Background:
Shown here is a 247-nucleotide sequence from Paenibacillus graminis, a member of the family "BsrG". Rfam's curators write: bsrE, bsrG and bsrH pair through intermolecular interactions with antisense sRNAs. The family's consensus secondary structure was predicted with WAR. NCBI's taxonomy places the organism under Bacteria, Bacillota, Caryophanales, Paenibacillaceae, Paenibacillus. Gene Ontology terms of the family: autolysis and toxin activity. It is annotated as a small RNA.
[Rfam]
RNA sequence: AGCAAUAGAAAGGCUUAUAUGGGCGGCCGGCUAAUCUCCCGGAAGGGAGGUGACGCCAGUGGAGGUAUACCAAGCAUUGACGCUAAUGAUUUCGUUCGCGACUCUGGUUGUGUUGAUUCUAUCUUUCCACAAAAAGAAAUAGGCCGCCCCGGUCAAAGGAUGCGGUCCUAUUUCAAUGGAUAACCUUUAAAAGCCUCCGCCCUUAAAAGCGGCUAUUGCGCAGAGAGUCGUGUGUCCAGCACGGCCC
Numbered sequence: 001a002g003c004a005a006u007a008g009a010a011a012g013g014c015u016u017a018u019a020u021g022g023g024c025g026g027c028c029g030g031c032u033a034a035u036c037u038c039c040c041g042g043a044a045g046g047g048a049g050g051u052g053a054c055g056c057c058a059g060u061g062g063a064g065g066u067a068u069a070c071c072a073a074g075c076a077u078u079g080a081c082g083c084u085a086a087u088g089a090u091u092u093c094g095u096u097c098g099c100g101a102c103u104c105u106g107g108u109u110g111u112g113u114u115g116a117u118u119c120u121a122u123c124u125u126u127c128c129a130c131a132a133a134a135a136g137a138a139a140u141a142g143g144c145c146g147c148c149c150c151g152g153u154c155a156a157a158g159g160a161u162g163c164g165g166u167c168c169u170a171u172u173u174c175a176a177u178g179g180a181u182a183a184c185c186u187u188u189a190a191a192a193g194c195c196u197c198c199g200c201c202c203u204u205a206a207a208a209g210c211g212g213c214u215a216u217u218g219c220g221c222a223g224a225g226a227g228u229c230g231u232g233u234g235u236c237c238a239g240c241a242c243g244g245c246c247c
Stems, first nucleotide, its partner, number of pairs: 002219004007214002011196006018152001021149003025144001027142001032053001034051001036049005061123002064120002067117001075088002099115004197212004225247001227245007